[Rfam]
RNA sequence: UCUUCCGGACGACCGGCAUAAAAGACAACUCUCCACGCGGGACGACCCGC
Numbered sequence: 001u002c003u004u005c006c007g008g009a010c011g012a013c014c015g016g017c018a019u020a021a022a023a024g025a026c027a028a029c030u031c032u033c034c035a036c037g038c039g040g041g042a043c044g045a046c047c048c049g050c
Stems, first nucleotide, its partner, number of pairs: 001021001004018001005016004037050005
Notes:
Shown here is a 50-nucleotide sequence from Alteromonadaceae bacterium 2753L.S.0a.02, a member of the family "Guanidine-II riboswitch aptamer (mini-ykkC)". The family's consensus secondary structure is taken from published work. Lineage of the source: Bacteria > Pseudomonadati > Pseudomonadota > Gammaproteobacteria > Alteromonadaceae. From the family's description: Simpler in structure and has fewer highly conserved nucleotide positions than the ykkC-yxkD leader. Despite this each of its two stem-loop structures directly bind free guanidine. The match comes from Rfam's covariance-model search (34 bits).